[Rfam]
RNA: Small nucleolar RNA SNORA71
RNA sequence: ACCUGCAUUCGCAAGGGGUUGAGGUCUCACCCGUGACUCAGUUGUUGUUAGUGCAGGGAGAGGAGCUCCAAAAGCGUUUCCCGUGUUUGGUGGGUUCAAUCCCGUCCCUUCCAAACCCUGUAGCCUUCAGACA
Numbered sequence: 001a002c003c004u005g006c007a008u009u010c011g012c013a014a015g016g017g018g019u020u021g022a023g024g025u026c027u028c029a030c031c032c033g034u035g036a037c038u039c040a041g042u043u044g045u046u047g048u049u050a051g052u053g054c055a056g057g058g059a060g061a062g063g064a065g066c067u068c069c070a071a072a073a074g075c076g077u078u079u080c081c082c083g084u085g086u087u088u089g090g091u092g093g094g095u096u097c098a099a100u101c102c103c104g105u106c107c108c109u110u111c112c113a114a115a116c117c118c119u120g121u122a123g124c125c126u127u128c129a130g131a132c133a
Base pairs, nucleotide, nucleotide: 002057003056004055005054006053007052008051009050014046015045017043018042019041020040021039023038024037025036026035068130071127072126074124075123085116086115087114088113089112090110092108093107094106